[Rfam]
RNA: A. fumigatus snoRNA Afu_263
RNA sequence: CUUAAUGAUGAACACCAUACCUUAAGCAUAGUUCACCUGAGGUCUCCGGAUCGUUGAACGAAAACUGUAUACCAUCUUUCAUUUCUAUCUGAUA
Numbered sequence: 001c002u003u004a005a006u007g008a009u010g011a012a013c014a015c016c017a018u019a020c021c022u023u024a025a026g027c028a029u030a031g032u033u034c035a036c037c038u039g040a041g042g043u044c045u046c047c048g049g050a051u052c053g054u055u056g057a058a059c060g061a062a063a064a065c066u067g068u069a070u071a072c073c074a075u076c077u078u079u080c081a082u083u084u085c086u087a088u089c090u091g092a093u094a
Stems, first nucleotide, its partner, number of pairs: 006019001008018003031059005041052004